[Rfam]
The family of this 71-nucleotide sequence from Mus musculus is "mir-344 microRNA precursor family".
RNA sequence: GAUUUGGUCAGGCUUCUGGCUAUACUCCAGGAAUUUUCUGGUCCUGGAUAUAACCACUGACAGACUGAAUG
Numbered sequence: 001g002a003u004u005u006g007g008u009c010a011g012g013c014u015u016c017u018g019g020c021u022a023u024a025c026u027c028c029a030g031g032a033a034u035u036u037u038c039u040g041g042u043c044c045u046g047g048a049u050a051u052a053a054c055c056a057c058u059g060a061c062a063g064a065c066u067g068a069a070u071g
Stems, first nucleotide, its partner, number of pairs: 007065003011061001013059001017056003021052004027041005
Record summary:
The organism belongs to Mus, within Eukaryota. Pairs were carried over by alignment from the consensus structure, which was predicted with RNAalifold. The match comes from Rfam's covariance-model search (62 bits).